[Rfam]
RNA sequence: AAAGAACUGCAUGACUGGCGGAUCGUGGGAAUACCCACAGGGAGUGCAGUGCUGAAUUUGUGCCGACCGCCUGGGCAGCCUGG
Numbered sequence: 001a002a003a004g005a006a007c008u009g010c011a012u013g014a015c016u017g018g019c020g021g022a023u024c025g026u027g028g029g030a031a032u033a034c035c036c037a038c039a040g041g042g043a044g045u046g047c048a049g050u051g052c053u054g055a056a057u058u059u060g061u062g063c064c065g066a067c068c069g070c071c072u073g074g075g076c077a078g079c080c081u082g083g
Stems, first nucleotide, its partner, number of pairs: 003053002006050007015041002017071005025038004061077004
Shown here is an 83-nucleotide RNA sequence from Ruminococcus sp. AF31-8BH, a member of the family "ZMP/ZTP riboswitch aptamer (pfl RNA motif)". The family's consensus secondary structure is taken from published work. It scores 65 bits against the family's covariance model.